[Rfam]
This 77-nucleotide RNA from Striga hermonthica belongs to the Rfam family "Small nucleolar RNA SNORD18". Rfam links the family to the GO terms nucleolus and RNA processing. NCBI's taxonomy places the organism under Eukaryota, Viridiplantae, Streptophytina, Tracheophyta, Striga. For this family Rfam cites "Two different snoRNAs are encoded in introns of amphibian and human L1 ribosomal protein genes" (Prislei et al., Nucleic Acids Res, 1993). A search with the family's covariance model found it, with a score of 43 bits.
RNA sequence: GAGAAAUGAUGAAUAAUUUAAUUGGUCCGUGUUUCUGAAUUAACCGUGACCGAUAACCCUAACCAAUAUCUGAUCUC
Numbered sequence: 001g002a003g004a005a006a007u008g009a010u011g012a013a014u015a016a017u018u019u020a021a022u023u024g025g026u027c028c029g030u031g032u033u034u035c036u037g038a039a040u041u042a043a044c045c046g047u048g049a050c051c052g053a054u055a056a057c058c059c060u061a062a063c064c065a066a067u068a069u070c071u072g073a074u075c076u077c
Stems, first nucleotide, its partner, number of pairs: 001077004